A member of the RNA family "mir-3473 microRNA precursor family" from Jaculus jaculus, 80 nucleotides long. The family has 5 seed sequences and 1,094 matches in Rfam 15.1. Pairs were carried over by alignment from the consensus structure, which was predicted with RNAalifold. The match comes from Rfam's covariance-model search (74 bits).

RNA sequence: ACCACUGAGCCAUCUCUCCAGCCCCAUAAAAUAUUUUUUCUAAAGAUGUAGUUUUGAGGCUGGAGAGAUGGCUUAGUGGU
Numbered sequence: 001a002c003c004a005c006u007g008a009g010c011c012a013u014c015u016c017u018c019c020a021g022c023c024c025c026a027u028a029a030a031a032u033a034u035u036u037u038u039u040c041u042a043a044a045g046a047u048g049u050a051g052u053u054u055u056g057a058g059g060c061u062g063g064a065g066a067g068a069u070g071g072c073u074u075a076g077u078g079g080u
Stems, first nucleotide, its partner, number of pairs: 002079022